Small nucleolar RNA SNORA68: a 132-nucleotide sequence from Loxodonta africana.
The sequence is in the family's curated seed alignment.
About the family: U68 is a member of the H/ACA class of small nucleolar RNAs (snoRNAs) which act as guides in the the modification of uridines to pseudouridines.
Taxonomically the source falls in Loxodonta (Eukaryota, Metazoa, Chordata, Craniata).
It is annotated as an H/ACA-box small nucleolar RNA.
Rfam 15.1 lists 1,079 matches to the family in 643 species.
For this family Rfam cites "The family of box ACA small nucleolar RNAs is defined by an evolutionarily conserved secondary structure and ubiquitous sequence elements essential for RNA accumulation" (Ganot et al., Genes Dev, 1997).
[Rfam]
RNA sequence: CUUGCACCCAAACCCAAGAACCGCAGUUUCUCGUAGCGGCGGUUUAAACAGUGGUGCACACAGCAAAUGGACCUUGUCGCCUUUGGGGAGCUGUCCCAUGCCCCCCAGAGUGAAUAUGGAGGUUCUACACCC
Numbered sequence: 001c002u003u004g005c006a007c008c009c010a011a012a013c014c015c016a017a018g019a020a021c022c023g024c025a026g027u028u029u030c031u032c033g034u035a036g037c038g039g040c041g042g043u044u045u046a047a048a049c050a051g052u053g054g055u056g057c058a059c060a061c062a063g064c065a066a067a068u069g070g071a072c073c074u075u076g077u078c079g080c081c082u083u084u085g086g087g088g089a090g091c092u093g094u095c096c097c098a099u100g101c102c103c104c105c106c107a108g109a110g111u112g113a114a115u116a117u118g119g120a121g122g123u124u125c126u127a128c129a130c131c132c
Stems, first nucleotide, its partner, number of pairs: 003058006019044006026037003069125007081110008090101002